[Rfam]
RNA sequence: GAGGAAGGCGGUCAACACCCGUCAGCGCGUUGCGCCCACGGGUGCCAUUCGG
Number, nucleotide and partner (000 for none) at each position: 001g000002a000003g000004g000005a000006a000007g000008g000009c000010g000011g000012u000013c000014a000015a000016c044017a043018c042019c041020c040021g039022u038023c000024a000025g035026c034027g033028c032029g000030u000031u000032g028033c027034g026035c025036c000037c000038a022039c021040g020041g019042g018043u017044g016045c000046c000047a000048u000049u000050c000051g000052g000

A member of the RNA family "ffh sRNA" from Devosia pacifica, 52 nucleotides long. The family's consensus secondary structure is taken from published work. A search with the family's covariance model found it, with a score of 59 bits. It is annotated as a small RNA.